[Rfam]
RNA sequence: AGGCAGCCCCCUUGUGAAUAAUAAUAUGGUAGGGGUGAGAUUGUGCUGCUCAUAAAAUGAUUAUUCUGCUCUUCAUACUUGCUGAGAUAGUUUUUGAAGUCAUCUCAGAAGCUGUUCUAGUAUGCUCAAGCACAUU
Numbered sequence: 001a002g003g004c005a006g007c008c009c010c011c012u013u014g015u016g017a018a019u020a021a022u023a024a025u026a027u028g029g030u031a032g033g034g035g036u037g038a039g040a041u042u043g044u045g046c047u048g049c050u051c052a053u054a055a056a057a058u059g060a061u062u063a064u065u066c067u068g069c070u071c072u073u074c075a076u077a078c079u080u081g082c083u084g085a086g087a088u089a090g091u092u093u094u095u096g097a098a099g100u101c102a103u104c105u106c107a108g109a110a111g112c113u114g115u116u117c118u119a120g121u122a123u124g125c126u127c128a129a130g131c132a133c134a135u136u
Stems, first nucleotide, its partner, number of pairs: 002042002008037001009035007017027001064129002068125002075118001077116001079114001081112003086104003
A member of the RNA family "Small nucleolar RNA snoR77" from Aquilegia coerulea, 136 nucleotides long. The source organism's lineage runs through Eukaryota, Euphyllophyta, Spermatophyta, Ranunculaceae and Aquilegia. On this family, see Marker et al., Curr Biol 2002: "Experimental RNomics: identification of 140 candidates for small non-messenger RNAs in the plant Arabidopsis thaliana". The match comes from Rfam's covariance-model search (66 bits). By type it is an H/ACA-box small nucleolar RNA. Rfam 15.1 lists 649 matches to the family in 221 species.